The record is a 104-nucleotide sequence from Candidimonas sp. SYP-B2681, which matches "SAH (S-adenosyl-L-homocysteine) riboswitch aptamer" in Rfam.
Its family is annotated with S-adenosylhomocysteine metabolic process and regulation of gene expression in the Gene Ontology.
The family's consensus secondary structure is taken from published work.
Taxonomically the source falls in Candidimonas (Bacteria, Pseudomonadota, Betaproteobacteria, Burkholderiales).
RNA sequence: CUUCCUGAGGAGCGCUGCGACGGGGUCGUGACUGGAGCCAAUGGCUUUACAGUUCCGCCCGCUAGGCUCAGGACUGUCUUUUGUUCCAACGGCGCUCAUCAUCC
Numbered sequence: 001c002u003u004c005c006u007g008a009g010g011a012g013c014g015c016u017g018c019g020a021c022g023g024g025g026u027c028g029u030g031a032c033u034g035g036a037g038c039c040a041a042u043g044g045c046u047u048u049a050c051a052g053u054u055c056c057g058c059c060c061g062c063u064a065g066g067c068u069c070a071g072g073a074c075u076g077u078c079u080u081u082u083g084u085u086c087c088a089a090c091g092g093c094g095c096u097c098a099u100c101a102u103c104c
Stems, first nucleotide, its partner, number of pairs: 003073006021061004